This 83-nucleotide sequence belongs to the Rfam family "Fluoride riboswitch aptamer (crcB RNA motif)".

[Rfam]
RNA sequence: CGUGAGGCGGGGUAUGGCGUCACCCCGUGGGUGAAUGCCCCGAACCGCCUCCUUUAAUGGAGGCUGAUGACGCCUACUUCUCU
Numbered sequence: 001c002g003u004g005a006g007g008c009g010g011g012g013u014a015u016g017g018c019g020u021c022a023c024c025c026c027g028u029g030g031g032u033g034a035a036u037g038c039c040c041c042g043a044a045c046c047g048c049c050u051c052c053u054u055u056a057a058u059g060g061a062g063g064c065u066g067a068u069g070a071c072g073c074c075u076a077c078u079u080c081u082c083u
Base pairs, nucleotide, nucleotide: 010025011024012023013022016074017073018072019071020070021069047064048063049062050061051060052059
The match comes from Rfam's covariance-model search (47 bits).